Archaeal small subunit ribosomal RNA: a 358-nucleotide part of an RNA from Promethearchaeum syntrophicum. Rfam 15.1 lists 709 matches to the family in 491 species. Rfam links the family to the GO terms structural constituent of ribosome and ribosome. For this family Rfam cites "Crystal structure of the ribosome at 5.5 A resolution" (Yusupov et al., Science, 2001).

RNA sequence: GGCUUAAAGUGUCCGUAGCCGGUUUGGUAAGUUCCUGGUUAAAUCUGGCAGCUUAACUGUCAGUCAGCUAGGAAUACUACUUUACUAGAGGGUGGGAAAGGUUUGAGGUACUCCAGGGGUAGCGGUGAAAUGCGAUAAUCCUUGGGGGACCACCAGUGGCGAAGGCGUCAGACUGGAACACGCCUGACGGUGAGGGACGAAAGCCAGGGGAGCGAACGGGAUUAGAUACCCCGGUAGUCCUGGCCGUAAACGAUGCGUGCUAGGUGUUGGUAGGGCUUUGAGCUGUAUCAGUGCCGUAGGGAAACUGUUAAGCGCGCCGCCUGGGAAGUACGCUCGCAAGGGUGAAACUUAAAGGAAU
Numbered sequence: 001g002g003c004u005u006a007a008a009g010u011g012u013c014c015g016u017a018g019c020c021g022g023u024u025u026g027g028u029a030a031g032u033u034c035c036u037g038g039u040u041a042a043a044u045c046u047g048g049c050a051g052c053u054u055a056a057c058u059g060u061c062a063g064u065c066a067g068c069u070a071g072g073a074a075u076a077c078u079a080c081u082u083u084a085c086u087a088g089a090g091g092g093u094g095g096g097a098a099a100g101g102u103u104u105g106a107g108g109u110a111c112u113c114c115a116g117g118g119g120u121a122g123c124g125g126u127g128a129a130a131u132g133c134g135a136u137a138a139u140c141c142u143u144g145g146g147g148g149a150c151c152a153c154c155a156g157u158g159g160c161g162a163a164g165g166c167g168u169c170a171g172a173c174u175g176g177a178a179c180a181c182g183c184c185u186g187a188c189g190g191u192g193a194g195g196g197a198c199g200a201a202a203g204c205c206a207g208g209g210g211a212g213c214g215a216a217c218g219g220g221a222u223u224a225g226a227u228a229c230c231c232c233g234g235u236a237g238u239c240c241u242g243g244c245c246g247u248a249a250a251c252g253a254u255g256c257g258u259g260c261u262a263g264g265u266g267u268u269g270g271u272a273g274g275g276c277u278u279u280g281a282g283c284u285g286u287a288u289c290a291g292u293g294c295c296g297u298a299g300g301g302a303a304a305c306u307g308u309u310a311a312g313c314g315c316g317c318c319g320c321c322u323g324g325g326a327a328g329u330a331c332g333c334u335c336g337c338a339a340g341g342g343u344g345a346a347a348c349u350u351a352a353a354g355g356a357a358u
Base pairs, nucleotide, nucleotide: 001321002320003319009318011198012197013196014195016192018191019190020189022085023084026081027080028079030078031077032074033073034072035071036070037069038068039067040066045063046062047061048060049059050058051057089185090184091183092181093180094179100174101173102172103171104170105169106168107151108150111147112146113145114144115143116142117141118140122133123132124131159166160165203244204243205242206241207240208239212238213237217233218232219231220230255317256316257315258314259313260312263295264294265293266292267291268290269289270288271287272286274284275283276282299306300305323350324349325348332343333342334341335340